Record summary
The record is a 99-nucleotide RNA sequence from Dysgonomonas mossii, which matches "TPP riboswitch aptamer (THI element)" in Rfam.
RNA sequence: CAUCUCUGUUAGGGGUGUUCUUUUUUAUAAGAGCUGAGAUUAAACCCUUGAACCUGAUAUGCUGUAAUUGGCAUCGUAGGGAAACGGAAUGAAUAGAAG
Numbered sequence: 001c002a003u004c005u006c007u008g009u010u011a012g013g014g015g016u017g018u019u020c021u022u023u024u025u026u027a028u029a030a031g032a033g034c035u036g037a038g039a040u041u042a043a044a045c046c047c048u049u050g051a052a053c054c055u056g057a058u059a060u061g062c063u064g065u066a067a068u069u070g071g072c073a074u075c076g077u078a079g080g081g082a083a084a085c086g087g088a089a090u091g092a093a094u095a096g097a098a099g
Stems, first nucleotide, its partner, number of pairs: 006087005011048004016042001017034005053080004059074004
The match comes from Rfam's covariance-model search (55 bits). The base pairs follow the family's consensus structure, which is taken from published work.